[Rfam]
Notes
Shown here is a 126-nucleotide RNA sequence from Photinus pyralis, a member of the family "U11 spliceosomal RNA". The family has 72 seed sequences and 2,595 matches in Rfam 15.1. NCBI's taxonomy places the organism under Eukaryota, Opisthokonta, Pancrustacea, Coleoptera, Photinus.

RNA sequence: AAAAAGGGUGUUUGCUCUUAAUAGCACGUGGGUCAUCGACCCAUGGGGUAUGGCAAUCAAGACAUACCCGACACAUAAUUUUUGUUAAUGAGAGGCUGUUUUUCGCCAUUGUGCAAAGGCGCCUCU
Numbered sequence: 001a002a003a004a005a006g007g008g009u010g011u012u013u014g015c016u017c018u019u020a021a022u023a024g025c026a027c028g029u030g031g032g033u034c035a036u037c038g039a040c041c042c043a044u045g046g047g048g049u050a051u052g053g054c055a056a057u058c059a060a061g062a063c064a065u066a067c068c069c070g071a072c073a074c075a076u077a078a079u080u081u082u083u084g085u086u087a088a089u090g091a092g093a094g095g096c097u098g099u100u101u102u103u104c105g106c107c108a109u110u111g112u113g114c115a116a117a118g119g120c121g122c123c124u125c126u
Stems, first nucleotide, its partner, number of pairs: 008074005013026004027045008046069007093124004098120005105114002107111001